[Rfam]
RNA sequence: CCUGGCUGUGAUGACACACUUGCCCUCACUGAGAGCGCGCCGCUCGUUAAUGAGAAACUCAUUUAGUACUCAUUUAGAUCUGAGCCAGG
Numbered sequence: 001c002c003u004g005g006c007u008g009u010g011a012u013g014a015c016a017c018a019c020u021u022g023c024c025c026u027c028a029c030u031g032a033g034a035g036c037g038c039g040c041c042g043c044u045c046g047u048u049a050a051u052g053a054g055a056a057a058c059u060c061a062u063u064u065a066g067u068a069c070u071c072a073u074u075u076a077g078a079u080c081u082g083a084g085c086c087a088g089g
Base pairs, nucleotide, nucleotide: 001089002088003087004086005085006084
About this RNA
This 89-nucleotide RNA sequence from Albula goreensis belongs to the Rfam family "Small nucleolar RNA SNORD103/SNORD85". Rfam 15.1 lists 1,349 matches to the family in 595 species. A search with the family's covariance model found it, with a score of 69 bits. The pairing is the family consensus, mapped onto this sequence. Its family is annotated with nucleolus and RNA processing in the Gene Ontology.